[Rfam]
Nucleotides: 230
Base pairs, nucleotide, nucleotide: 002216003215004027005026006025007024008023009022011021012020013019014018030158031157032156033155035152036151038148039147040146041145042144050143053140054139055138056137057136060133061132062131063130064128065127066126067089068088069087070086072082073081074080092125093124094123095122099118100117101116104113105112159213160212161211162210163209167204168203169202170201171200178194179193180192181191182190183189217230218229219228220227221226
Number, partner (000 for none) and nucleotide at each position: 001000a002216g003215g004027u005026c006025g007024a008023g009022g010000c011021g012020a013019c014018c015000a016000g017000c018014g019013g020012u021011u022009c023008c024007u025006u026005g027004a028000a029000a030158u031157u032156g033155g034000c035152c036151u037000g038148u039147u040146g041145c042144a043000u044000c045000g046000g047000a048000u049000c050143g051000a052000a053140g054139u055138a056137g057136c058000c059000g060133c061132c062131c063130g064128g065127g066126u067089u068088g069087c070086c071000c072082g073081c074080c075000a076000u077000c078000c079000a080074g081073g082072u083000a084000u085000a086070g087069g088068u089067a090000c091000g092125g093124g094123u095122c096000g097000a098000g099118c100117u101116g102000a103000g104113c105112c106000a107000u108000u109000g110000c111000a112105g113104g114000a115000a116101c117100a118099g119000a120000u121000a122095g123094a124093c125092c126066g127065c128064c129000u130063c131062g132061g133060g134000a135000u136057g137056c138055u139054g140053c141000g142000a143050c144042u145041g146040c147039g148038a149000c150000g151036a152035g153000a154000u155033c156032c157031a158030g159213g160212c161211c162210g163209u164000g165000a166000u167204g168203u169202g170201g171200u172000a173000a174000u175000a176000c177000a178194g179193a180192a181191c182190c183189g184000a185000c186000c187000g188000g189183c190182g191181g192180u193179u194178c195000a196000g197000c198000u199000g200171a201170u202169c203168a204167c205000c206000a207000a208000a209163g210162c211161g212160g213159c214000g215003c216002c217230c218229c219228a220227c221226c222000g223000g224000c225000a226221g227220g228219u229218g230217g

Notes
Rfam assigns this 230-nucleotide RNA from Ruegeria pomeroyi to the family "Ruegeria cis90 sRNA". Gene Ontology term of the family: regulation of gene expression. Rfam classes the family as a small RNA. The organism belongs to Ruegeria pomeroyi, within Bacteria.